[Rfam]
RNA sequence: CCCAUGCCGGCCGCGGAGUCCACCGUCAUCUUGCGGUGGACCUUGGGCCGGACGCGGAUUAGUUGGUGAGUGCCGCGCUCAUGACAAAACCCCGACAGCC
Numbered sequence: 001c002c003c004a005u006g007c008c009g010g011c012c013g014c015g016g017a018g019u020c021c022a023c024c025g026u027c028a029u030c031u032u033g034c035g036g037u038g039g040a041c042c043u044u045g046g047g048c049c050g051g052a053c054g055c056g057g058a059u060u061a062g063u064u065g066g067u068g069a070g071u072g073c074c075g076c077g078c079u080c081a082u083g084a085c086a087a088a089a090c091c092c093c094g095a096c097a098g099c100c
Base pairs, nucleotide, nucleotide: 001016002015007051008050009049010048011047018041019040020039021038022037023036024035025034026033053077054076055075056074057073062096063095064094065093066092
Dot-bracket structure: [[....(((((...]].(((((((((......))))))))).....))))).(((((....[[[[[......)))))..............]]]]]....

Annotation
A member of the RNA family "Proteo-phage-1 RNA" from Ramlibacter albus, 100 nucleotides long. The match comes from Rfam's covariance-model search (59 bits). Taxonomically the source falls in Ramlibacter (Bacteria, Pseudomonadota, Betaproteobacteria, Burkholderiales).